[Rfam]
RNA sequence: CCCGAGACUAGAGUCACAUCUUGACAGCUAUUGUCCUGGUGUGCUAGAGUUCUCGGAGAGAAUCUGCUGGUCUUGAUUCACUGACGCGGGCAGUAAGUGCCCCUGGUAGUGCCCAGAUCAGAAACAUAG
Numbered sequence: 001c002c003c004g005a006g007a008c009u010a011g012a013g014u015c016a017c018a019u020c021u022u023g024a025c026a027g028c029u030a031u032u033g034u035c036c037u038g039g040u041g042u043g044c045u046a047g048a049g050u051u052c053u054c055g056g057a058g059a060g061a062a063u064c065u066g067c068u069g070g071u072c073u074u075g076a077u078u079c080a081c082u083g084a085c086g087c088g089g090g091c092a093g094u095a096a097g098u099g100c101c102c103c104u105g106g107u108a109g110u111g112c113c114c115a116g117a118u119c120a121g122a123a124a125c126a127u128a129g
Stems, first nucleotide, its partner, number of pairs: 002056005007050003012045002015043006023035004067121007075113001079111005086104001088102004
This 129-nucleotide RNA sequence from Cnephaeus nilssonii belongs to the Rfam family "Small nucleolar RNA SNORA3/SNORA45 family". The base pairs follow the family's consensus structure, which was predicted with RNAalifold. The members of this family belong to the H/ACA class of snoRNAs which are thought to guide the sites of modification of uridines to pseudouridines. This family includes mouse snoMBI-28 and human homologues ACA3 (SNORA3) and ACA3-2 (SNORA45). The family's RNA type in Rfam is H/ACA-box small nucleolar RNA. The literature on the family includes a 2005 paper in Nucleic Acids Res by Gu et al., "A novel experimental approach for systematic identification of box H/ACA snoRNAs from eukaryotes". The match comes from Rfam's covariance-model search (122 bits).